[Rfam]
A member of the RNA family "Small nucleolar RNA Z122" from Cynara cardunculus, 101 nucleotides long. The family's RNA type in Rfam is C/D-box small nucleolar RNA. Rfam 15.1 lists 822 matches to the family in 247 species.
RNA sequence: UUUGGAAAAUGAUGCUAAAAGAUAUCGAAUUAUGUUAUCAUAGGCAUAUAUUAUGUGCUGUGCUGAACGAAAUUCUAUUUGCACGUCAGUCUGAUUCCAAA
Numbered sequence: 001u002u003u004g005g006a007a008a009a010u011g012a013u014g015c016u017a018a019a020a021g022a023u024a025u026c027g028a029a030u031u032a033u034g035u036u037a038u039c040a041u042a043g044g045c046a047u048a049u050a051u052u053a054u055g056u057g058c059u060g061u062g063c064u065g066a067a068c069g070a071a072a073u074u075c076u077a078u079u080u081g082c083a084c085g086u087c088a089g090u091c092u093g094a095u096u097c098c099a100a101a
Stems, first nucleotide, its partner, number of pairs: 001101007